RNA: glmS glucosamine-6-phosphate activated ribozyme aptamer
RNA sequence: UAUGUAAAAAAAGCGCCAGGACUAAGUGGAAUUUAGCUUAAAGCGAAUUUUUAGCGAGUUAGUUUUUAAGAAAAAGAAUUUAGAUGAUAGAAUCUUUUUAAAGGAAACUAGACUCACAUUCGUUUGCUGAGUAAGCUCAACUAAUCAAAUCGAAGAUUUGGAGUUUCACUUAUGUUGACGAGGUUGGGGAGUAUCGAAACUUCGGCGGGUGCCCCACGGUAUCGCACUACCGUAAACGACUGGUAAAACUGUAAAGUGAUUUACAGCACAAGUUCAGUCUGGUGUUAAAA
Numbered sequence: 001u002a003u004g005u006a007a008a009a010a011a012a013g014c015g016c017c018a019g020g021a022c023u024a025a026g027u028g029g030a031a032u033u034u035a036g037c038u039u040a041a042a043g044c045g046a047a048u049u050u051u052u053a054g055c056g057a058g059u060u061a062g063u064u065u066u067u068a069a070g071a072a073a074a075a076g077a078a079u080u081u082a083g084a085u086g087a088u089a090g091a092a093u094c095u096u097u098u099u100a101a102a103g104g105a106a107a108c109u110a111g112a113c114u115c116a117c118a119u120u121c122g123u124u125u126g127c128u129g130a131g132u133a134a135g136c137u138c139a140a141c142u143a144a145u146c147a148a149a150u151c152g153a154a155g156a157u158u159u160g161g162a163g164u165u166u167c168a169c170u171u172a173u174g175u176u177g178a179c180g181a182g183g184u185u186g187g188g189g190a191g192u193a194u195c196g197a198a199a200c201u202u203c204g205g206c207g208g209g210u211g212c213c214c215c216a217c218g219g220u221a222u223c224g225c226a227c228u229a230c231c232g233u234a235a236a237c238g239a240c241u242g243g244u245a246a247a248a249c250u251g252u253a254a255a256g257u258g259a260u261u262u263a264c265a266g267c268a269c270a271a272g273u274u275c276a277g278u279c280u281g282g283u284g285u286u287a288a289a290a
Stems, first nucleotide, its partner, number of pairs: 020176003023172005029166006185216005194205004217232005238279005249266007